[Rfam]
RNA sequence: GUGUUUUUCAUGGUAUUAGAUUUUAAGGUUAAGUGAGAUUGGGAAUUCGUGAGGAUUCCCUUCUUUAUUUUAU
Numbered sequence: 001g002u003g004u005u006u007u008u009c010a011u012g013g014u015a016u017u018a019g020a021u022u023u024u025a026a027g028g029u030u031a032a033g034u035g036a037g038a039u040u041g042g043g044a045a046u047u048c049g050u051g052a053g054g055a056u057u058c059c060c061u062u063c064u065u066u067a068u069u070u071u072a073u
Stems, first nucleotide, its partner, number of pairs: 041060007
RNA: Bacteroidetes FopS (family of paralogous sRNAs)
Organism: Bacteroidetes bacterium oral taxon 272